This 81-nucleotide sequence from Idiomarina xiamenensis belongs to the Rfam family "antisense RNA of dnaA mRNA". The literature on the family includes a 2013 paper in PLoS One by Dadzie et al., "Identification and characterization of a cis-encoded antisense RNA associated with the replication process of Salmonella enterica serovar Typhi". The base pairs follow the family's consensus structure, which was predicted with RNAfold.
[Rfam]
Nucleotides: 081
Stems, first nucleotide, its partner, number of pairs: 004043003009038002016032003020029002052077003056074002061072002
Number, partner (000 for none) and nucleotide at each position: 001000u002000u003000u004043u005042g006041c007000g008000u009038u010037u011000u012000u013000c014000u015000u016032g017031u018030g019000c020029g021028c022000c023000a024000a025000a026000a027000u028021g029020c030018c031017g032016u033000u034000a035000c036000c037010g038009a039000c040000g041006g042005c043004a044000u045000g046000c047000a048000a049000c050000a051000a052077g053076u054075g055000g056074g057073u058000c059000u060000u061072a062071c063000c064000u065000a066000a067000a068000c069000c070000c071062g072061u073057g074056c075054c076053a077052c078000c079000g080000u081000a
Notes
Lineage of the source: Bacteria > Pseudomonadota > Alteromonadales > Idiomarinaceae > Idiomarina xiamenensis.